[Rfam]
RNA: HNH endonuclease-associated RNA and ORF (HEARO) RNA
Organism: Paraburkholderia panacisoli
RNA sequence: GUCAAUCGCCCCACCAUAACGGUGGAACUUGUGGAGGCAAAGACACGAGUUCGGGUUGACCAGGCAAAGCGGUAACCAGCCCGCUACGUUGCGCAUAGGUUAAAGACCGACGUUGGGAUGCUUCCUCAGUCCCAACCUCUCGAAGCCACGGUUGCAGACACGCGACAGGGUAAGCACGAAACGGAUCGGGGCAGAUAGCCGGUGCGCAACAUUGCCGAGGGGAGACAUCC
Number, nucleotide and partner (000 for none) at each position: 001g060002u059003c058004a057005a056006u055007c054008g000009c000010c000011c000012c024013a023014c000015c022016a000017u000018a000019a000020c000021g000022g015023u013024g012025g000026a000027a000028c049029u048030u047031g046032u045033g044034g000035a000036g000037g000038c000039a000040a000041a000042g000043a000044c033045a032046c031047g030048a029049g028050u000051u000052c000053g000054g007055g006056u005057u004058g003059a002060c001061c000062a000063g216064g215065c214066a213067a212068a085069g084070c083071g082072g081073u000074a000075a000076c000077c000078a000079g000080c000081c072082c071083g070084c069085u068086a000087c000088g210089u209090u208091g207092c206093g205094c204095a203096u202097a000098g200099g000100u000101u000102a000103a000104a000105g000106a000107c142108c000109g000110a000111c000112g136113u135114u134115g133116g132117g131118a130119u129120g226121c000122u224123u223124c222125c221126u220127c219128a000129g119130u118131c117132c116133c115134a114135a113136c112137c000138u000139c000140u000141c000142g107143a000144a000145g192146c191147c190148a000149c188150g187151g186152u185153u184154g000155c000156a000157g000158a000159c000160a000161c000162g000163c000164g000165a000166c000167a000168g000169g000170g000171u000172a000173a000174g000175c000176a000177c000178g000179a000180a000181a000182c000183g000184g153185a152186u151187c150188g149189g000190g147191g146192c145193a000194g000195a000196u000197a000198g000199c000200c098201g000202g096203u095204g094205c093206g092207c091208a090209a089210c088211a000212u067213u066214g065215c064216c063217g000218a000219g127220g126221g125222g124223a123224g122225a000226c120227a000228u000229c000230c000